[Rfam]
Nucleotides: 076
Stems, first nucleotide, its partner, number of pairs: 014059005022051004029044006
Number, partner (000 for none) and nucleotide at each position: 001000a002000a003000a004000u005000a006000a007000a008000u009000a010000g011000g012000c013000c014059u015058u016057c017056u018055c019000u020000u021000g022051c023050c024049g025048g026000u027000u028000c029044u030043u031042c032041c033040u034039g035000g036000a037000g038000u039034c040033a041032g042031g043030a044029a045000a046000a047000g048025c049024u050023g051022g052000g053000u054000u055018g056017a057016g058015a059014g060000g061000g062000u063000g064000a065000a066000a067000a068000a069000u070000a071000a072000a073000u074000a075000a076000a

A member of the RNA family "mir-320 microRNA precursor family" from Aotus nancymaae, 76 nucleotides long. NCBI's taxonomy places the organism under Eukaryota, Bilateria, Theria, Euarchontoglires, Aotus. For this family Rfam cites "Many novel mammalian microRNA candidates identified by extensive cloning and RAKE analysis" (Berezikov et al., Genome Res, 2006). A search with the family's covariance model found it, with a score of 85 bits.